[Rfam]
RNA sequence: AGGAGGUCAAAUUUUUUAAUGAAUUACAAUAAAAAUUGACCUUUUGA
Numbered sequence: 001a002g003g004a005g006g007u008c009a010a011a012u013u014u015u016u017u018a019a020u021g022a023a024u025u026a027c028a029a030u031a032a033a034a035a036u037u038g039a040c041c042u043u044u045u046g047a
Base pairs, nucleotide, nucleotide: 001045002044003043004042005041006040007039008038009037010036013035014034015033016032017031018030020028021027
Dot-bracket structure: ((((((((((..((((((.((.....)).))))))))))))))))..